Rfam assigns this 187-nucleotide sequence from Pseudoflavonifractor sp. An184 to the family "Lysine riboswitch aptamer". It scores 87 bits against the family's covariance model. From the family's description: Riboswitches are metabolite binding domains within certain messenger RNAs that serve as precision sensors for their corresponding targets. Its family is annotated with lysine biosynthetic process in the Gene Ontology. The family's consensus secondary structure is taken from published work.

RNA sequence: UUGCAUGAUAGAGGUCGCGGCCGACAUGAGUACGCGUGGCCAGGGAGCCGGUUCCCGUCCACCCACGCCCAAAGGGAAGGCCGCCGAAGGGUUUUCCUCUCGCACCGGAACGGAGGGCCCUGGUCGCCGGGUCAACAGCUCUGCGACUGUCAUCAGGGCGGUUCCCUGAUGGAGCGCUGUCUGCUUU
Numbered sequence: 001u002u003g004c005a006u007g008a009u010a011g012a013g014g015u016c017g018c019g020g021c022c023g024a025c026a027u028g029a030g031u032a033c034g035c036g037u038g039g040c041c042a043g044g045g046a047g048c049c050g051g052u053u054c055c056c057g058u059c060c061a062c063c064c065a066c067g068c069c070c071a072a073a074g075g076g077a078a079g080g081c082c083g084c085c086g087a088a089g090g091g092u093u094u095u096c097c098u099c100u101c102g103c104a105c106c107g108g109a110a111c112g113g114a115g116g117g118c119c120c121u122g123g124u125c126g127c128c129g130g131g132u133c134a135a136c137a138g139c140u141c142u143g144c145g146a147c148u149g150u151c152a153u154c155a156g157g158g159c160g161g162u163u164c165c166c167u168g169a170u171g172g173a174g175c176g177c178u179g180u181c182u183g184c185u186u187u
Base pairs, nucleotide, nucleotide: 007181008180009179010178011177017084018083019082020081021080022079025076034068035067036066037065038064039063088121089120090119091118092117093116094115095114096113097112122148123147124146125145126144127143129141130140131139132138150172151171152170153169154168155167156166